[Rfam]
RNA sequence: UGACUUUUUUCUUAAUCAAACUUUUUUUUAGGUUUGACCAAGUUUAUAGAAAAAUAUAGCAACAUUUUUAACACAAAAUAAACAUAUUAUCAAAAUAAAUUCAAUGUUAUAUCUAAUGAAACUAAUUUGGUGUUGUAGAUGACGCUAAUUUUUUCUAUAAACUUGGUCAAACCUAAAAAAAGUUUGAUUAAGAAAAAAAAUCA
Numbered sequence: 001u002g003a004c005u006u007u008u009u010u011c012u013u014a015a016u017c018a019a020a021c022u023u024u025u026u027u028u029u030a031g032g033u034u035u036g037a038c039c040a041a042g043u044u045u046a047u048a049g050a051a052a053a054a055u056a057u058a059g060c061a062a063c064a065u066u067u068u069u070a071a072c073a074c075a076a077a078a079u080a081a082a083c084a085u086a087u088u089a090u091c092a093a094a095a096u097a098a099a100u101u102c103a104a105u106g107u108u109a110u111a112u113c114u115a116a117u118g119a120a121a122c123u124a125a126u127u128u129g130g131u132g133u134u135g136u137a138g139a140u141g142a143c144g145c146u147a148a149u150u151u152u153u154u155c156u157a158u159a160a161a162c163u164u165g166g167u168c169a170a171a172c173c174u175a176a177a178a179a180a181a182g183u184u185u186g187a188u189u190a191a192g193a194a195a196a197a198a199a200a201u202c203a
Stems, first nucleotide, its partner, number of pairs: 005198005011192016033171005047157008057147003063141005069135002074130001076128004
Rfam assigns this 203-nucleotide sequence from Oryza meridionalis to the family "MIR1435 microRNA precursor family".
Its family is annotated with RISC complex and miRNA-mediated post-transcriptional gene silencing in the Gene Ontology.
The base pairs follow the family's consensus structure, which was predicted with RNAalifold.